The record is a 274-nucleotide RNA from Meloidogyne javanica, which matches "RNase MRP" in Rfam. Rfam's curators write: RNase MRP is an enzymatically active ribonucleoprotein with two distinct roles in eukaryotes.

RNA sequence: GGUGGCGGUAUGUUUCAAUGCUCGGAAUCACGAAACGGCCUUAGUGGUUGUGCAAAUUCUGAGGAAAGUCCCUGGACCUGCGGCUGAGAGAGUCCGCGCCCGGAGGCGCGCAGUCGAGUGCACAAAUCUCUUUAUGAGUCCCUGGGUGGCCAUAAGAGCCAUGAACCUCGCAAGAGUGAGCUCGGUCGCCUUUUCGGAAGGGAGCAUUCGAUUUUCGUCAACGUCAAAGUAAUGCUGAAAGAUAAAACAGAAUAGGGCUUAAUCAGACUGUCAC
Numbered sequence: 001g002g003u004g005g006c007g008g009u010a011u012g013u014u015u016c017a018a019u020g021c022u023c024g025g026a027a028u029c030a031c032g033a034a035a036c037g038g039c040c041u042u043a044g045u046g047g048u049u050g051u052g053c054a055a056a057u058u059c060u061g062a063g064g065a066a067a068g069u070c071c072c073u074g075g076a077c078c079u080g081c082g083g084c085u086g087a088g089a090g091a092g093u094c095c096g097c098g099c100c101c102g103g104a105g106g107c108g109c110g111c112a113g114u115c116g117a118g119u120g121c122a123c124a125a126a127u128c129u130c131u132u133u134a135u136g137a138g139u140c141c142c143u144g145g146g147u148g149g150c151c152a153u154a155a156g157a158g159c160c161a162u163g164a165a166c167c168u169c170g171c172a173a174g175a176g177u178g179a180g181c182u183c184g185g186u187c188g189c190c191u192u193u194u195c196g197g198a199a200g201g202g203a204g205c206a207u208u209c210g211a212u213u214u215u216c217g218u219c220a221a222c223g224u225c226a227a228a229g230u231a232a233u234g235c236u237g238a239a240a241g242a243u244a245a246a247a248c249a250g251a252a253u254a255g256g257g258c259u260u261a262a263u264c265a266g267a268c269u270g271u272c273a274c
Stems, first nucleotide, its partner, number of pairs: 002274008011265001014239004019234001022062007036050005066260003070257004082094004095110006132199002135196003145190004156183004166176001168174001

About this RNA
NCBI's taxonomy places the organism under Eukaryota, Bilateria, Chromadorea, Tylenchoidea, Meloidogyne. Rfam links the family to the GO terms ribonuclease MRP activity, rRNA processing and ribonuclease MRP complex. Rfam classes the family as a ribozyme.